[Rfam]
RNA sequence: UCUAACUUAGACGACGCAAGCCCUACCUCUCUUGCAUCCUUACGGCUCCGAAGCCGAUCCAGUGUGAAUAAGUGUUUCAAAAACUUA
Numbered sequence: 001u002c003u004a005a006c007u008u009a010g011a012c013g014a015c016g017c018a019a020g021c022c023c024u025a026c027c028u029c030u031c032u033u034g035c036a037u038c039c040u041u042a043c044g045g046c047u048c049c050g051a052a053g054c055c056g057a058u059c060c061a062g063u064g065u066g067a068a069u070a071a072g073u074g075u076u077u078c079a080a081a082a083a084c085u086u087a
Base pairs, nucleotide, nucleotide: 035066036065039062040061043056044055045054046053047052
RNA: BsrC